The record is a 111-nucleotide RNA sequence from Carlito syrichta, which matches "Y RNA" in Rfam.
Rfam classes the family as a non-coding RNA gene.
On this family, see Teunissen et al., Nucleic Acids Res 2000: "Conserved features of Y RNAs: a comparison of experimentally derived secondary structures".
[Rfam]
RNA sequence: GGCUUACCCGAAGGUGGUGGGUUAUCUCAGUCGAUUAUUCACAGUCAGUUACAGAUUGAGCUCCCUGUUCUACUCUUUCUCCUUCUCACUAAUGCACUUGACUAAUCUUUA
Dot-bracket structure: ((.(...(.((..((((((((.....................(((.((.....................)))))..........))))))...))..)))...).))....

Y RNAs are components of the Ro ribonucleoprotein particle (Ro RNP), in association with Ro60 and La proteins. The Y RNAs and Ro60 and La proteins are well conserved, but the function of the Ro RNP is not known. The organism belongs to Carlito, within Eukaryota.